[Rfam]
RNA: Archaeal large subunit ribosomal RNA, nucleotides 1631 to 2045
RNA sequence: GGUAGUAACAGCGAAGCGGGGUGAGAAUCCCCGCCGCCGGAAAGGGCAAGGGUUCCCCGGCAAUGGUCGUCAGCCGGGGGUCAGCCGGUCCUAACCGGGACCGUAACACGGAUCCCGGGAAGGGGAAACGGGUUAACAUUCCCGUGCCGCGGGGGUACGCUUCGCGGCAACGCAAGGCCCCACCCCCGACGCCUCGGGGUAGGCGGACCGGGGGCCCCCUUAGGGGGGCGACCCGGCUAACCUGCCGAAGGCCGGGGAGUGCCGUAACGGCGAGAACCGGCCGAAGGGGGGAAUGGCCCGCCUAUGGCGGGUUCCGCCGACCCCUGGGGCCCUUGAAAAGGGGGUGGGGAAGGAUCCCCCGCGCCCGUACCGAGAACCGACACAGGUGCCCCUGGGUGAGCAGCCCAAGGCGUCU
Numbered sequence: 001g002g003u004a005g006u007a008a009c010a011g012c013g014a015a016g017c018g019g020g021g022u023g024a025g026a027a028u029c030c031c032c033g034c035c036g037c038c039g040g041a042a043a044g045g046g047c048a049a050g051g052g053u054u055c056c057c058c059g060g061c062a063a064u065g066g067u068c069g070u071c072a073g074c075c076g077g078g079g080g081u082c083a084g085c086c087g088g089u090c091c092u093a094a095c096c097g098g099g100a101c102c103g104u105a106a107c108a109c110g111g112a113u114c115c116c117g118g119g120a121a122g123g124g125g126a127a128a129c130g131g132g133u134u135a136a137c138a139u140u141c142c143c144g145u146g147c148c149g150c151g152g153g154g155g156u157a158c159g160c161u162u163c164g165c166g167g168c169a170a171c172g173c174a175a176g177g178c179c180c181c182a183c184c185c186c187c188g189a190c191g192c193c194u195c196g197g198g199g200u201a202g203g204c205g206g207a208c209c210g211g212g213g214g215c216c217c218c219c220u221u222a223g224g225g226g227g228g229c230g231a232c233c234c235g236g237c238u239a240a241c242c243u244g245c246c247g248a249a250g251g252c253c254g255g256g257g258a259g260u261g262c263c264g265u266a267a268c269g270g271c272g273a274g275a276a277c278c279g280g281c282c283g284a285a286g287g288g289g290g291g292a293a294u295g296g297c298c299c300g301c302c303u304a305u306g307g308c309g310g311g312u313u314c315c316g317c318c319g320a321c322c323c324c325u326g327g328g329g330c331c332c333u334u335g336a337a338a339a340g341g342g343g344g345u346g347g348g349g350a351a352g353g354a355u356c357c358c359c360c361g362c363g364c365c366c367g368u369a370c371c372g373a374g375a376a377c378c379g380a381c382a383c384a385g386g387u388g389c390c391c392c393u394g395g396g397u398g399a400g401c402a403g404c405c406c407a408a409g410g411c412g413u414c415u
Stems, first nucleotide, its partner, number of pairs: 016034006035412004044391004050371002055079006064072002086367003090124002095118006101111003128145005148363008185342003191330009202318005208236005241290003245287001251281005261271003302306001377386002393407004